The record is a 76-nucleotide RNA from Longispora fulva, which matches "SAH (S-adenosyl-L-homocysteine) riboswitch aptamer" in Rfam. Rfam links the family to the GO terms regulation of gene expression and S-adenosylhomocysteine metabolic process. The match comes from Rfam's covariance-model search (42 bits). Lineage of the source: Bacteria > Actinomycetota > Actinomycetes > Micromonosporales > Longispora.
[Rfam]
RNA sequence: CAGGUCGAGGGGCGCUGCGACGGACGAGAGUCCGCCACGCUCGGCCGGUUCCACUCCGCAAGGGCGCCUCCCGACA
Numbered sequence: 001c002a003g004g005u006c007g008a009g010g011g012g013c014g015c016u017g018c019g020a021c022g023g024a025c026g027a028g029a030g031u032c033c034g035c036c037a038c039g040c041u042c043g044g045c046c047g048g049u050u051c052c053a054c055u056c057c058g059c060a061a062g063g064g065c066g067c068c069u070c071c072c073g074a075c076a
Stems, first nucleotide, its partner, number of pairs: 003046006021034005